[Rfam]
RNA sequence: CUGCAGGGAUGAUUUCUGAACUCUCUCUUGCUGAGGUGCUGGUGGAGAAGCUCUUGAAUAUGCUCUGAGCGGC
Numbered sequence: 001c002u003g004c005a006g007g008g009a010u011g012a013u014u015u016c017u018g019a020a021c022u023c024u025c026u027c028u029u030g031c032u033g034a035g036g037u038g039c040u041g042g043u044g045g046a047g048a049a050g051c052u053c054u055u056g057a058a059u060a061u062g063c064u065c066u067g068a069g070c071g072g073c
Base pairs, nucleotide, nucleotide: 001072002071003070004069
Description
A member of the RNA family "Small nucleolar RNA SNORD26" from Acanthisitta chloris, 73 nucleotides long. The match comes from Rfam's covariance-model search (60 bits). For this family Rfam cites "A mammalian gene with introns instead of exons generating stable RNA products" (Tycowski et al., Nature, 1996). The family's consensus secondary structure was predicted with PFOLD. Gene Ontology terms of the family: RNA processing and nucleolus.